[Rfam]
RNA sequence: UGUGGGGAGUUUGCAUAAGGGGCUACGACCGUACACUUGUUGUACUUGAUUCGCCCUUGGGAAGGUCUGAGUUAAUGUCGCCUUUCGAGGAGGUCCGAGAGGGGCCCCCGUGCAAACAGCGGGGCGGGCAAAGAGAAACGCUUGUGUCCAGCGGUUUUGGUUGCGAAUGAGGCUUUCUGCCGACGCUCUCCUGCCGCUUGGAUUUGGGAUAUGCCCGUGGCUAGAAUUUCACAGCUCGAUAUGCAAGGCACUGCGUGUGUGGUGUAACUCAAUUCAGACUACUCCCUCACACA
Numbered sequence: 001u002g003u004g005g006g007g008a009g010u011u012u013g014c015a016u017a018a019g020g021g022g023c024u025a026c027g028a029c030c031g032u033a034c035a036c037u038u039g040u041u042g043u044a045c046u047u048g049a050u051u052c053g054c055c056c057u058u059g060g061g062a063a064g065g066u067c068u069g070a071g072u073u074a075a076u077g078u079c080g081c082c083u084u085u086c087g088a089g090g091a092g093g094u095c096c097g098a099g100a101g102g103g104g105c106c107c108c109c110g111u112g113c114a115a116a117c118a119g120c121g122g123g124g125c126g127g128g129c130a131a132a133g134a135g136a137a138a139c140g141c142u143u144g145u146g147u148c149c150a151g152c153g154g155u156u157u158u159g160g161u162u163g164c165g166a167a168u169g170a171g172g173c174u175u176u177c178u179g180c181c182g183a184c185g186c187u188c189u190c191c192u193g194c195c196g197c198u199u200g201g202a203u204u205u206g207g208g209a210u211a212u213g214c215c216c217g218u219g220g221c222u223a224g225a226a227u228u229u230c231a232c233a234g235c236u237c238g239a240u241a242u243g244c245a246a247g248g249c250a251c252u253g254c255g256u257g258u259g260u261g262g263u264g265u266a267a268c269u270c271a272a273u274u275c276a277g278a279c280u281a282c283u284c285c286c287u288c289a290c291a292c293a
Stems, first nucleotide, its partner, number of pairs: 001293004005287003010247007018058005031045005067277005080221003092106005107123005124218007145201001248265007

Record summary: This 293-nucleotide sequence from Nephila pilipes belongs to the Rfam family "Nuclear RNase P". Clan: RNaseP clan. Gene Ontology terms of the family: tRNA processing, ribonuclease P complex and ribonuclease P activity. The family's consensus secondary structure is taken from published work.